[Rfam]
RNA: Small nucleolar RNA SNORA41
Organism: Eurypyga helias
RNA sequence: CUCCACAGCUACUGGUCUGGAACUGUUCAGAACUGUAGCAGUUGCAGUAUUCCCUCUGUGGAAAAUGAACUGUUACAUGGCAUUACGCUCCUUCUCCAAUCCUCUGGAAAGGACUUCCUGUGUAACAGACAACG
Numbered sequence: 001c002u003c004c005a006c007a008g009c010u011a012c013u014g015g016u017c018u019g020g021a022a023c024u025g026u027u028c029a030g031a032a033c034u035g036u037a038g039c040a041g042u043u044g045c046a047g048u049a050u051u052c053c054c055u056c057u058g059u060g061g062a063a064a065a066u067g068a069a070c071u072g073u074u075a076c077a078u079g080g081c082a083u084u085a086c087g088c089u090c091c092u093u094c095u096c097c098a099a100u101c102c103u104c105u106g107g108a109a110a111g112g113a114c115u116u117c118c119u120g121u122g123u124a125a126c127a128g129a130c131a132a133c134g
Stems, first nucleotide, its partner, number of pairs: 003061004017047003021043005075123005089113005095107002